[Rfam]
RNA sequence: CUUGUGGAUUGUUAUAUAAACUCAAGUAGCUGUUAAUAAUUUAAUAGUAGAACGGGGACAGGAAGAAGCAAGAA
Numbered sequence: 001c002u003u004g005u006g007g008a009u010u011g012u013u014a015u016a017u018a019a020a021c022u023c024a025a026g027u028a029g030c031u032g033u034u035a036a037u038a039a040u041u042u043a044a045u046a047g048u049a050g051a052a053c054g055g056g057g058a059c060a061g062g063a064a065g066a067a068g069c070a071a072g073a074a
Base pairs, nucleotide, nucleotide: 001072002071003070004069005068009061010060011059012058013057021056022055023054029048030047031046033044034043
The record is a 74-nucleotide sequence, which matches "RAGATH-18 RNA" in Rfam. Rfam's curators put it in the seed alignment.